[Rfam]
RNA sequence: GCAAUCUCAGGGGGAAGUUGUACUGAGGCAUACUGUAUCAGGAAGUAUUCGGGCUGAUUGCUCUUGGUACGCUGUAGGUAUUGGCUAUUAACGAUAGUCAAUAGAAGGGCAUUAAUAGCGCAGACCUGUUAGGAAAAAAAGCAGGCGCAUAUUGAGGGAACCCAACG
Numbered sequence: 001g002c003a004a005u006c007u008c009a010g011g012g013g014g015a016a017g018u019u020g021u022a023c024u025g026a027g028g029c030a031u032a033c034u035g036u037a038u039c040a041g042g043a044a045g046u047a048u049u050c051g052g053g054c055u056g057a058u059u060g061c062u063c064u065u066g067g068u069a070c071g072c073u074g075u076a077g078g079u080a081u082u083g084g085c086u087a088u089u090a091a092c093g094a095u096a097g098u099c100a101a102u103a104g105a106a107g108g109g110c111a112u113u114a115a116u117a118g119c120g121c122a123g124a125c126c127u128g129u130u131a132g133g134a135a136a137a138a139a140a141g142c143a144g145g146c147g148c149a150u151a152u153u154g155a156g157g158g159a160a161c162c163c164a165a166c167g
Base pairs, nucleotide, nucleotide: 006027007026008025009024010023035070036069037068038067039066040065041064042063045061046060047059079103080102081101082100083099084098085097086096087095088094121145
A member of the RNA family "DABA-DC-AT RNA" from Photobacterium aphoticum, 167 nucleotides long.
The match comes from Rfam's covariance-model search (64 bits).